[Rfam]
RNA sequence: ACGCCACACCUUCCACUCGGAUCGUCCGGCACGUGCCUGCCGGUGAAGGAGAAGAAC
Numbered sequence: 001a002c003g004c005c006a007c008a009c010c011u012u013c014c015a016c017u018c019g020g021a022u023c024g025u026c027c028g029g030c031a032c033g034u035g036c037c038u039g040c041c042g043g044u045g046a047a048g049g050a051g052a053a054g055a056a057c
Base pairs, nucleotide, nucleotide: 009049010048011047012046014045015044026043027042028041029040030039031038
RNA: msiK RNA
Organism: Nocardioides sp. S5